[Rfam]
RNA sequence: GAUAAAACAGGUGAGAAACCUGUUCGCCGAAAAUCUAAGGGUUCCUGAGGAAGGUUAAUCCACUCAGGGUAAGUCGACCCCUAAGGCGAGGCCGAAAGGCGUAGCUGAUGGGAAGCGGGUUAAUAUUCCCGUACCACUUGAAUCGCGUUAUUAGCGAUGGGGUAACGUAGAAGGGUAAUUUAUCCGGGUAUUGGACGUCCCGGUUCAAGCAUGUAGGAGGGUGAUUUUGGCAAAUCCGGAUCACCAUUAACUCUGAGGUGUUAUGAGGAGCUUCUCCUUCGGGACAAGCGAACUAAAUGAUCCCACGCUACCGAGAAAAACCUCUAGUGAGUUAUUUAGGUGAUCGUACCCUAAACCGACACGGGUAGAUGAGUAGAGAAUACUAAGGCGCU
Dot-bracket structure: .....((((((.......))))))((((....((((..((...((((((...((.....)).))))))......(((..((...(((.(.(((....))).).)))...))...(((((........)))))..(((((((((.(........((...(((((...((((..(((..(((((.(((((..........))))).((..((((...(((..(((((((.((.....))))))))).......)))...))))...))...((((............))))....)))))...)))...))))........)))))..))...).))))))))).)))..)).....((......)).)))).((((.....))))..))))..
Description:
Rfam assigns this 392-nucleotide part of an RNA from uncultured bacterium HF0770_08F21 to the family "Bacterial large subunit ribosomal RNA". The sequence is in the family's curated seed alignment. Its Rfam clan is "LSU clan".